[Rfam]
RNA sequence: GCUAACGGCAGUUUAUCAGACGGGUCGGGAUUAGCAAAGAAAGGCUAAUAGGCAUUACAGCGGUAGGUAACAAAUCCGUAAGUCGAAAUGAGUUGGGAAAACCAAAUGAUACG
Numbered sequence: 001g002c003u004a005a006c007g008g009c010a011g012u013u014u015a016u017c018a019g020a021c022g023g024g025u026c027g028g029g030a031u032u033a034g035c036a037a038a039g040a041a042a043g044g045c046u047a048a049u050a051g052g053c054a055u056u057a058c059a060g061c062g063g064u065a066g067g068u069a070a071c072a073a074a075u076c077c078g079u080a081a082g083u084c085g086a087a088a089u090g091a092g093u094u095g096g097g098a099a100a101a102c103c104a105a106a107u108g109a110u111a112c113g
Stems, first nucleotide, its partner, number of pairs: 006027004011021003030049006093105004